[Rfam]
RNA sequence: CUCCCCGAAAUGCAUUUAGGUGCAGCGUCGUGUGUUUCUUGCCGGAGGUAGAGCACUGGAUAGUCUAGGGGGCCCAACAGCUUACCGAAAUUAGCCAAACUCCGAAUGCCGGUAAGUGAGAGCGCGGCAGUGAGACUGUGGGGGAUAAGCUUCAUAGUCGAGAGGGAAACAGCCCAGAUCACCAGCUAAGGCCCCUAAGCGGUAACUAAGUGGAAAAGGAUGUGGAGUUGCGGAGACAACCAGGAGGUUGGCUUGGAAGCAGCCACCCUUGAAAGAGUGCGUAAUAGCUCACUGGUCAAGUGAUUCUGCGCCGACAAUUUAGCGGGGCUCAAGUUAUCCGCCGAAGCUGUGGCAUUCACGCGUGUACCUGAACUUUGGUUCCAGGUGUGUGGAUGGGUAGGGGAGCGUCGUGUGUGCGAAGAAGCGUCGGGGUGACCCGGGCGUGGAGGGCACACGAGUGAGAAU
Numbered sequence: 001c002u003c004c005c006c007g008a009a010a011u012g013c014a015u016u017u018a019g020g021u022g023c024a025g026c027g028u029c030g031u032g033u034g035u036u037u038c039u040u041g042c043c044g045g046a047g048g049u050a051g052a053g054c055a056c057u058g059g060a061u062a063g064u065c066u067a068g069g070g071g072g073c074c075c076a077a078c079a080g081c082u083u084a085c086c087g088a089a090a091u092u093a094g095c096c097a098a099a100c101u102c103c104g105a106a107u108g109c110c111g112g113u114a115a116g117u118g119a120g121a122g123c124g125c126g127g128c129a130g131u132g133a134g135a136c137u138g139u140g141g142g143g144g145a146u147a148a149g150c151u152u153c154a155u156a157g158u159c160g161a162g163a164g165g166g167a168a169a170c171a172g173c174c175c176a177g178a179u180c181a182c183c184a185g186c187u188a189a190g191g192c193c194c195c196u197a198a199g200c201g202g203u204a205a206c207u208a209a210g211u212g213g214a215a216a217a218g219g220a221u222g223u224g225g226a227g228u229u230g231c232g233g234a235g236a237c238a239a240c241c242a243g244g245a246g247g248u249u250g251g252c253u254u255g256g257a258a259g260c261a262g263c264c265a266c267c268c269u270u271g272a273a274a275g276a277g278u279g280c281g282u283a284a285u286a287g288c289u290c291a292c293u294g295g296u297c298a299a300g301u302g303a304u305u306c307u308g309c310g311c312c313g314a315c316a317a318u319u320u321a322g323c324g325g326g327g328c329u330c331a332a333g334u335u336a337u338c339c340g341c342c343g344a345a346g347c348u349g350u351g352g353c354a355u356u357c358a359c360g361c362g363u364g365u366a367c368c369u370g371a372a373c374u375u376u377g378g379u380u381c382c383a384g385g386u387g388u389g390u391g392g393a394u395g396g397g398u399a400g401g402g403g404a405g406c407g408u409c410g411u412g413u414g415u416g417c418g419a420a421g422a423a424g425c426g427u428c429g430g431g432g433u434g435a436c437c438c439g440g441g442c443g444u445g446g447a448g449g450g451c452a453c454a455c456g457a458g459u460g461a462g463a464a465u
Stems, first nucleotide, its partner, number of pairs: 001405006011024005026130001027128007036121001038116008051103001052101002057097003061093004068086002070083004134159010164175003179352004184348003190342003199339001201338006218312002222309010239296005245269003250264003270274001275290001279288002353395011406460001408457008417448001424444005429438003

Shown here is a 465-nucleotide part of an RNA from Desertihabitans brevis, a member of the family "Bacterial large subunit ribosomal RNA". Taxonomically the source falls in Desertihabitans (Bacteria, Bacillati, Actinomycetota, Actinomycetes).